[Rfam]
RNA sequence: GACAGGCGAAAUAUAACAGCUCGAAGAGCUGUAUUGUAAUACAUUUCGCCGCACAGCCGCCGAACGAAGUGAGGGGCAAUACCGCUG
Numbered sequence: 001g002a003c004a005g006g007c008g009a010a011a012u013a014u015a016a017c018a019g020c021u022c023g024a025a026g027a028g029c030u031g032u033a034u035u036g037u038a039a040u041a042c043a044u045u046u047c048g049c050c051g052c053a054c055a056g057c058c059g060c061c062g063a064a065c066g067a068a069g070u071g072a073g074g075g076g077c078a079a080u081a082c083c084g085c086u087g
Stems, first nucleotide, its partner, number of pairs: 008047005016032006056077003060074002064070002
Dot-bracket structure: .......(((((...((((((.....))))))..........)))))........(((.((..((...))..)))))..........
A member of the RNA family "GA-cis RNA", 87 nucleotides long. Rfam's curators put it in the seed alignment. Pairs were carried over by alignment from the consensus structure, which is taken from published work.